[Rfam]
RNA sequence: GGCGUGGGCCGUGACUGGCGCUGAGGUGGAGUACCACCGGGGAGCGGCCCGACGCACACGUCUUCGCCGCGCGCCUGGGCAUCUUCC
Numbered sequence: 001g002g003c004g005u006g007g008g009c010c011g012u013g014a015c016u017g018g019c020g021c022u023g024a025g026g027u028g029g030a031g032u033a034c035c036a037c038c039g040g041g042g043a044g045c046g047g048c049c050c051g052a053c054g055c056a057c058a059c060g061u062c063u064u065c066g067c068c069g070c071g072c073g074c075c076u077g078g079g080c081a082u083c084u085u086c087c
Stems, first nucleotide, its partner, number of pairs: 005051008015041002017075005026037004066080003
Dot-bracket structure: ....((((((((..(([[[[[....((((....))))..))..))))))))..............(((..]]]]]..))).......
Notes
ZMP/ZTP riboswitch aptamer (pfl RNA motif): an 87-nucleotide RNA. The match comes from Rfam's covariance-model search (58 bits).